[Rfam]
RNA sequence: AUAGCCUUACACGGGAGCUUAGGGAACUAGGCUGAGAGGAUAACGUUAAUCUGUUAUCGACCGUUGAACCUGAACUGGAUAAUGCCAGCGGAGGGAUUAGACAAGCAUUGUUG
Number, nucleotide and partner (000 for none) at each position: 001a000002u000003a000004g000005c000006c000007u100008u099009a098010c000011a064012c063013g062014g061015g000016a000017g032018c031019u030020u029021a028022g000023g000024g000025a000026a000027c000028u021029a020030g019031g018032c017033u000034g000035a000036g000037a000038g000039g058040a057041u056042a055043a054044c053045g052046u000047u000048a000049a000050u000051c000052u045053g044054u043055u042056a041057u040058c039059g000060a000061c014062c013063g012064u011065u000066g000067a000068a000069c094070c093071u092072g000073a000074a000075c088076u087077g086078g085079a000080u000081a000082a000083u000084g000085c078086c077087a076088g075089c000090g000091g000092a071093g070094g069095g000096a000097u000098u009099a008100g007101a000102c000103a000104a000105g000106c000107a000108u000109u000110g000111u000112u000113g000
The record is a 113-nucleotide RNA from Ammoniphilus oxalaticus, which matches "TPP riboswitch aptamer (THI element)" in Rfam.
Rfam's curators write: Vitamin B(1) in its active form thiamin pyrophosphate (TPP) is an essential coenzyme that is synthesised by coupling of pyrimidine and thiazole moieties in bacteria.
On this family, see Thore et al., Science 2006: "Structure of the eukaryotic thiamine pyrophosphate riboswitch with its regulatory ligand".
A search with the family's covariance model found it, with a score of 59 bits.